[Rfam]
A member of the RNA family "Small nucleolar RNA SNORA55" from Podiceps cristatus, 132 nucleotides long.
The family's RNA type in Rfam is H/ACA-box small nucleolar RNA.
The organism belongs to Podiceps, within Eukaryota.
Rfam links the family to the GO terms RNA processing and nucleolus.
The match comes from Rfam's covariance-model search (100 bits).
ACA55 is a member of the H/ACA class of snoRNA that guide the sites of modification of uridines to pseudouridines.
RNA sequence: GCAUCUGAAUCUUACCCACUCCUUGUGCUGUAGUGCUGGACUGGGGACAUGUGAUGCAACAGGAAAGCAGAGGAAAUCCAGGCGAGCUCCCUUUACCACAGUGGGACUUGUCUCUACGCCUUUGCAACAUUU
Numbered sequence: 001g002c003a004u005c006u007g008a009a010u011c012u013u014a015c016c017c018a019c020u021c022c023u024u025g026u027g028c029u030g031u032a033g034u035g036c037u038g039g040a041c042u043g044g045g046g047a048c049a050u051g052u053g054a055u056g057c058a059a060c061a062g063g064a065a066a067g068c069a070g071a072g073g074a075a076a077u078c079c080a081g082g083c084g085a086g087c088u089c090c091c092u093u094u095a096c097c098a099c100a101g102u103g104g105g106a107c108u109u110g111u112c113u114c115u116a117c118g119c120c121u122u123u124g125c126a127a128c129a130u131u132u
Base pairs, nucleotide, nucleotide: 001057002056003055004054005053013047015045016044017043018042021039022038067125068124069123070122071121072120080113081112082111083110084109085108086107096104097103098102